The record is a 101-nucleotide RNA from Variimorphobacter saccharofermentans, which matches "dinG RNA" in Rfam. Lineage of the source: Bacteria > Bacillati > Bacillota > Clostridia > Variimorphobacter. The family's RNA type in Rfam is small RNA. It scores 54 bits against the family's covariance model. Pairs were carried over by alignment from the consensus structure, which is taken from published work.
RNA sequence: CAUGGUACUUCUAUCUUGAACGCUUCACCGCAUUGGAUAGCCCGGCAGACGGCCGGGAAAACGCAUCACCCUCAUUUGAGAAAGAAUGAGGGGCGGCUUUU
Numbered sequence: 001c002a003u004g005g006u007a008c009u010u011c012u013a014u015c016u017u018g019a020a021c022g023c024u025u026c027a028c029c030g031c032a033u034u035g036g037a038u039a040g041c042c043c044g045g046c047a048g049a050c051g052g053c054c055g056g057g058a059a060a061a062c063g064c065a066u067c068a069c070c071c072u073c074a075u076u077u078g079a080g081a082a083a084g085a086a087u088g089a090g091g092g093g094c095g096g097c098u099u100u101u
Stems, first nucleotide, its partner, number of pairs: 011040005041057006058101004063097002071090005